[Rfam]
RNA: Glycine riboswitch aptamer
Organism: Neobacillus cucumis
RNA sequence: GGAGCAGCUUCUGGAGAGACCGCAACUUUGCGGCGCCGAAGGGUUCACAAUCUCAGGCAAAAGGACAGAAGAGUACGA
Numbered sequence: 001g002g003a004g005c006a007g008c009u010u011c012u013g014g015a016g017a018g019a020c021c022g023c024a025a026c027u028u029u030g031c032g033g034c035g036c037c038g039a040a041g042g043g044u045u046c047a048c049a050a051u052c053u054c055a056g057g058c059a060a061a062a063g064g065a066c067a068g069a070a071g072a073g074u075a076c077g078a
Stems, first nucleotide, its partner, number of pairs: 008071006020033004035058003038054002042052003